Rfam assigns this 154-nucleotide RNA from Cucumis melo to the family "U12 minor spliceosomal RNA". It scores 90 bits against the family's covariance model. The family's RNA type in Rfam is spliceosomal small nuclear RNA. The family has 62 seed sequences and 2,106 matches in Rfam 15.1. Its Rfam clan is "U2 clan".

[Rfam]
RNA sequence: CUGCCUUAAACUAAUGAGUAAGGAAAACAAAGUGGCCGGGGGGAUCCGGCCGCAGCGCUAACCAAAGUGAUGCGCAUGAAUUUGUGGAGGGGUUAAAGGCUUGGCCGAUUGUUGACGCUGCUUACUUUGCAGAACUCUUUCGUGCUGGCCUCCC
Number, nucleotide and partner (000 for none) at each position: 001c000002u000003g000004c023005c022006u021007u020008a019009a000010a000011c000012u000013a000014a000015u000016g000017a000018g000019u008020a007021a006022g005023g004024a000025a000026a000027a000028c000029a000030a000031a000032g053033u052034g051035g050036c049037c048038g047039g046040g000041g000042g000043g000044a000045u000046c039047c038048g037049g036050c035051c034052g033053c032054a000055g075056c074057g073058c072059u000060a000061a000062c000063c000064a000065a000066a000067g000068u000069g000070a000071u000072g058073c057074g056075c055076a000077u000078g000079a000080a000081u000082u000083u000084g000085u000086g000087g000088a000089g000090g000091g154092g153093u000094u000095a000096a000097a151098g150099g149100c148101u147102u000103g145104g000105c000106c142107g141108a000109u000110u000111g137112u000113u000114g000115a000116c000117g000118c132119u131120g130121c129122u000123u000124a000125c000126u000127u000128u000129g121130c120131a119132g118133a000134a000135c000136u000137c111138u000139u000140u000141c107142g106143u000144g000145c103146u000147g101148g100149c099150c098151u097152c000153c092154c091